The family of this 72-nucleotide RNA from Sphingomonas xinjiangensis is "tRNA".
Rfam's curators write: Transfer RNA (tRNA) molecules are approximately 80 nucleotides in length.
The family has 954 seed sequences and 5,335,975 matches in Rfam 15.1.
A search with the family's covariance model found it, with a score of 46 bits.
The family's consensus secondary structure is taken from published work.
By type it is a transfer RNA.

[Rfam]
RNA sequence: GCUGGGGUAGCUCAGCGGUAAAGCGCCCGCCUCGCAAGCGGCCGGCUGCGGGUUCAAGUCCCGCAGCCGGCU
Numbered sequence: 001g002c003u004g005g006g007g008u009a010g011c012u013c014a015g016c017g018g019u020a021a022a023g024c025g026c027c028c029g030c031c032u033c034g035c036a037a038g039c040g041g042c043c044g045g046c047u048g049c050g051g052g053u054u055c056a057a058g059u060c061c062c063g064c065a066g067c068c069g070g071c072u
Base pairs, nucleotide, nucleotide: 001071002070003069004068005067010024011023012022027041028040029039030038048064049063050062051061052060